[Rfam]
RNA sequence: ACCUGCUGCGGGCGAUGUGAGUGGGUGCCCGCAGCACCAGACAGAACACCGUGCCACGGGAACAACGGGGCACUUCAGGGCGUU
Numbered sequence: 001a002c003c004u005g006c007u008g009c010g011g012g013c014g015a016u017g018u019g020a021g022u023g024g025g026u027g028c029c030c031g032c033a034g035c036a037c038c039a040g041a042c043a044g045a046a047c048a049c050c051g052u053g054c055c056a057c058g059g060g061a062a063c064a065a066c067g068g069g070g071c072a073c074u075u076c077a078g079g080g081c082g083u084u
Base pairs, nucleotide, nucleotide: 004036005035006034007033008032009031010030011029012028013027014026016023017022051073052072053071054070055069057067058066
This 84-nucleotide RNA sequence from Streptomyces chartreusis belongs to the Rfam family "nrdJ RNA".
The sequence is in the family's curated seed alignment.
The base pairs follow the family's consensus structure, which is taken from published work.
By type it is a small RNA.